[Rfam]
Shown here is a 144-nucleotide sequence from Atractosteus spatula, a member of the family "Small nucleolar RNA SNORD10". It is annotated as a C/D-box small nucleolar RNA. It scores 38 bits against the family's covariance model. Rfam links the family to the GO terms nucleolus and RNA processing.
RNA sequence: UGUGAAUGCUGAUCCCUCAUGUGUGUCAGCUGAUCCCAGAAUCUCUUUCCGUUCCCCUCGGGUCCCCCGGCGUUAUGUUGGGAGGGUGUGAGUGGGCCUGAAGGGGUCUGGGACCAUGAUCAGAGGUUAGGGAGACUGAACAUG
Numbered sequence: 001u002g003u004g005a006a007u008g009c010u011g012a013u014c015c016c017u018c019a020u021g022u023g024u025g026u027c028a029g030c031u032g033a034u035c036c037c038a039g040a041a042u043c044u045c046u047u048u049c050c051g052u053u054c055c056c057c058u059c060g061g062g063u064c065c066c067c068c069g070g071c072g073u074u075a076u077g078u079u080g081g082g083a084g085g086g087u088g089u090g091a092g093u094g095g096g097c098c099u100g101a102a103g104g105g106g107u108c109u110g111g112g113a114c115c116a117u118g119a120u121c122a123g124a125g126g127u128u129a130g131g132g133a134g135a136c137u138g139a140a141c142a143u144g
Stems, first nucleotide, its partner, number of pairs: 001144004046103004051098001053096001